Description: Shown here is a 103-nucleotide RNA sequence from Sinobaca qinghaiensis, a member of the family "Guanidine-I riboswitch aptamer".

[Rfam]
RNA sequence: CAAAUUGUUUUCUAGGGUUCCGCGGCACCGUGCCGGCCUGGUCCAAGAGAAAACACAGUGUGUAUAAAGCAUACUGACACGGAGGGAAAAAAGCCCGGGAGAU
Numbered sequence: 001c002a003a004a005u006u007g008u009u010u011u012c013u014a015g016g017g018u019u020c021c022g023c024g025g026c027a028c029c030g031u032g033c034c035g036g037c038c039u040g041g042u043c044c045a046a047g048a049g050a051a052a053a054c055a056c057a058g059u060g061u062g063u064a065u066a067a068a069g070c071a072u073a074c075u076g077a078c079a080c081g082g083a084g085g086g087a088a089a090a091a092a093g094c095c096c097g098g099g100a101g102a103u
Stems, first nucleotide, its partner, number of pairs: 007054006015044002020041002022038001023035005056076008078098001080101001084096003
Pairs were carried over by alignment from the consensus structure. Rfam's curators write: This family represents a conserved RNA structure found upstream of the ykkC and yxkD genes in Bacillus subtilis and related genes in other bacteria.